About this RNA
7SK RNA: a 322-nucleotide RNA sequence from Indicator maculatus. It scores 248 bits against the family's covariance model. The base pairs follow the family's consensus structure, which is taken from published work. By type it is a non-coding RNA gene.
RNA sequence: GGAUGUGAGGGCAAUCUGGCUGCAACAUCUGUCACCCCAUUGAUCGCCAGGGUAGGUUCCACUGAUCUGGCUGGCUAAGCAGGUCUCCCCUUCCUCCCUCACUGCUCCAUGUGAGUCCCUCCCGAAGCUGUGCACUCGAAGAGGAUGACCUACCACAAUAGAGAGGGCACUGUUCAUCAGUCAAGGAUAUAUGGUAGCUGCACUCCCCUCCUUGAACCUCCAAACAAGAUCAAGGUCUGCUUGUAAGAGAACACAGGGUAGCCAAGCUUCCAAGACUGUAGACAUCCAAGUGAGGCACUGCAUGGGGCAGUCUGCCACUGUU
Numbered sequence: 001g002g003a004u005g006u007g008a009g010g011g012c013a014a015u016c017u018g019g020c021u022g023c024a025a026c027a028u029c030u031g032u033c034a035c036c037c038c039a040u041u042g043a044u045c046g047c048c049a050g051g052g053u054a055g056g057u058u059c060c061a062c063u064g065a066u067c068u069g070g071c072u073g074g075c076u077a078a079g080c081a082g083g084u085c086u087c088c089c090c091u092u093c094c095u096c097c098c099u100c101a102c103u104g105c106u107c108c109a110u111g112u113g114a115g116u117c118c119c120u121c122c123c124g125a126a127g128c129u130g131u132g133c134a135c136u137c138g139a140a141g142a143g144g145a146u147g148a149c150c151u152a153c154c155a156c157a158a159u160a161g162a163g164a165g166g167g168c169a170c171u172g173u174u175c176a177u178c179a180g181u182c183a184a185g186g187a188u189a190u191a192u193g194g195u196a197g198c199u200g201c202a203c204u205c206c207c208c209u210c211c212u213u214g215a216a217c218c219u220c221c222a223a224a225c226a227a228g229a230u231c232a233a234g235g236u237c238u239g240c241u242u243g244u245a246a247g248a249g250a251a252c253a254c255a256g257g258g259u260a261g262c263c264a265a266g267c268u269u270c271c272a273a274g275a276c277u278g279u280a281g282a283c284a285u286c287c288a289a290g291u292g293a294g295g296c297a298c299u300g301c302a303u304g305g306g307g308c309a310g311u312c313u314g315c316c317a318c319u320g321u322u
Base pairs, nucleotide, nucleotide: 001108002107003106005102006101007100008099009098010097011096014092018090019089025086027084028083029082030081031080032079035074036073037070038069039068042067043066044065045064046062116167117166119163120162121161123138124137125136127135143154144153197267198266199265203261204260206258207257208256209255218249219248220247224244225243226242227241228240289322290321292318294316295315296314297311298310299309300308301307
7SK was discovered as an abundant small nuclear RNA in the mid-70s but a possible function has only recently been suggested. Two independent studies have found that 7SK RNA binds the CDK9/cyclin T complex (known as elongation factor P-TEFb). P-TEFb activates transcription by phosphorylating the C-terminal domain of RNA polymerase II. This process is negatively regulated by the 7SK RNP. The secondary structure of 7SK RNA shown here was proposed by Wasserman and Steitz on the basis of chemical modification and enzymatic cleavage experiments. This family contains a number of annotated pseudogenes and 7SK derived repeats. The threshold is artificially high to minimise the pseudogene count.